[Rfam]
RNA sequence: GACAGUAGGAUCUGAUCUCUUUGAGAAAGAAGAGAUGUCGAACGGGCAAGGUUUCCUUGGCACUAACAAUUAACCAAGGGUUAGUCGGUACCUAAGUCAUAUCUUAAUUGAGUAUGACGACGGACAGCAGGUUAAUAUUCCUGCACUGAUUAGUUUUGUUAUGCAUAUAAAUAGCUUUAGGAUAAGCAAAAUAUCGAGAGAUAUAGCAAGAAGAAAGAAAUGGAUUGUAAUGAAGAGAAGUUUAAGAAUUCUUGUGUAUUUGUUGACUCCAGGAGUCAGUGAAAAGUUUAUAUGAUAGAAAUUAGUUAGCCGUACCGAGAUCUAGCACUGGUGCCCUAGCUGAGAAGGCUAAGACAUGA
Numbered sequence: 001g002a003c004a005g006u007a008g009g010a011u012c013u014g015a016u017c018u019c020u021u022u023g024a025g026a027a028a029g030a031a032g033a034g035a036u037g038u039c040g041a042a043c044g045g046g047c048a049a050g051g052u053u054u055c056c057u058u059g060g061c062a063c064u065a066a067c068a069a070u071u072a073a074c075c076a077a078g079g080g081u082u083a084g085u086c087g088g089u090a091c092c093u094a095a096g097u098c099a100u101a102u103c104u105u106a107a108u109u110g111a112g113u114a115u116g117a118c119g120a121c122g123g124a125c126a127g128c129a130g131g132u133u134a135a136u137a138u139u140c141c142u143g144c145a146c147u148g149a150u151u152a153g154u155u156u157u158g159u160u161a162u163g164c165a166u167a168u169a170a171a172u173a174g175c176u177u178u179a180g181g182a183u184a185a186g187c188a189a190a191a192u193a194u195c196g197a198g199a200g201a202u203a204u205a206g207c208a209a210g211a212a213g214a215a216a217g218a219a220a221u222g223g224a225u226u227g228u229a230a231u232g233a234a235g236a237g238a239a240g241u242u243u244a245a246g247a248a249u250u251c252u253u254g255u256g257u258a259u260u261u262g263u264u265g266a267c268u269c270c271a272g273g274a275g276u277c278a279g280u281g282a283a284a285a286g287u288u289u290a291u292a293u294g295a296u297a298g299a300a301a302u303u304a305g306u307u308a309g310c311c312g313u314a315c316c317g318a319g320a321u322c323u324a325g326c327a328c329u330g331g332u333g334c335c336c337u338a339g340c341u342g343a344g345a346a347g348g349c350u351a352a353g354a355c356a357u358g359a
Stems, first nucleotide, its partner, number of pairs: 016035006036356004044336004050316002055079006064072002086312003091123002096118006102111002127144005147308008170288003174276005180270003185264005191204005208253004218243004225236001322331002337351004
Dot-bracket structure: ...............((((((........))))))((((....((((..((...((((((...((.....)).))))))......(((..((...((((((((......)).))))))...))...(((((........)))))..((((((((...............(((.(((((.(((..(((((.(((((....)))))...((((......((((...(..........)...))))......))))......)))))...))).))))).........)))............)))))))).)))..)).....((......)).))))((((.......)))).))))...